[Rfam]
RNA sequence: AAGUCAUGGGAUGAAGUGGAUGGGUUGUGGCCUAUUUUCUUAAUGGGCUUAACCCAGGAAAGUCCCCGGGCCACGAACCGCAGAGAUGCGGGCUUGGUAACAAGUAAAGCCCAUGGGCUGGGCGGUCUGACCUAGUUGUCAGGGGCUGAGACACGUGUGGAGCCCUCUGACCGCUGCCGGUGGGUGAAAUUGGCCGAUGCUUCACAGUUAUUCACUUGGCCCGUAAUUUGGCUAACUGAACGGGGCUUAUACUCCCAUGACA
Numbered sequence: 001a002a003g004u005c006a007u008g009g010g011a012u013g014a015a016g017u018g019g020a021u022g023g024g025u026u027g028u029g030g031c032c033u034a035u036u037u038u039c040u041u042a043a044u045g046g047g048c049u050u051a052a053c054c055c056a057g058g059a060a061a062g063u064c065c066c067c068g069g070g071c072c073a074c075g076a077a078c079c080g081c082a083g084a085g086a087u088g089c090g091g092g093c094u095u096g097g098u099a100a101c102a103a104g105u106a107a108a109g110c111c112c113a114u115g116g117g118c119u120g121g122g123c124g125g126u127c128u129g130a131c132c133u134a135g136u137u138g139u140c141a142g143g144g145g146c147u148g149a150g151a152c153a154c155g156u157g158u159g160g161a162g163c164c165c166u167c168u169g170a171c172c173g174c175u176g177c178c179g180g181u182g183g184g185u186g187a188a189a190u191u192g193g194c195c196g197a198u199g200c201u202u203c204a205c206a207g208u209u210a211u212u213c214a215c216u217u218g219g220c221c222c223g224u225a226a227u228u229u230g231g232c233u234a235a236c237u238g239a240a241c242g243g244g245g246c247u248u249a250u251a252c253u254c255c256c257a258u259g260a261c262a
Stems, first nucleotide, its partner, number of pairs: 003261009014217006021056007029049007060248003064245004079090004092105005127180003133176004138171005143165004153158001219232003223228001
RNase MRP: a 262-nucleotide RNA from Salvia splendens. The family's consensus secondary structure is taken from published work. The family's RNA type in Rfam is ribozyme. The source organism's lineage runs through Eukaryota, Magnoliopsida, Gunneridae, lamiids and core Calosphace.